[Rfam]
pan motif: a 114-nucleotide RNA from Desulfallas thermosapovorans.
NCBI's taxonomy places the organism under Bacteria, Clostridia, Desulfallaceae, Desulfallas, Desulfallas thermosapovorans.
RNA sequence: UGGACGGUAUCCGUUCUGGAACCGUACCAAUUUCUCAGCUGGUUGGGUAGGUGAUGCUUUUAUGGGUUAAUCUAAUAUAUCUCCGCUUGGAGCCGGUUGGACCGAGACGGGUUU
Number, nucleotide and partner (000 for none) at each position: 001u029002g028003g027004a025005c024006g023007g022008u021009a000010u020011c019012c000013g000014u000015u000016c000017u000018g000019g011020a010021a008022c007023c006024g005025u004026a000027c003028c002029a001030a000031u000032u000033u000034c000035u000036c000037a000038g000039c000040u000041g000042g000043u000044u000045g000046g000047g000048u000049a000050g000051g000052u000053g000054a000055u000056g000057c000058u000059u000060u000061u000062a000063u000064g000065g000066g000067u000068u000069a000070a000071u000072c000073u000074a000075a000076u000077a000078u000079a000080u000081c000082u000083c110084c109085g108086c106087u105088u104089g103090g102091a000092g000093c100094c099095g000096g000097u000098u000099g094100g093101a000102c090103c089104g088105a087106g086107a000108c085109g084110g083111g000112u000113u000114u000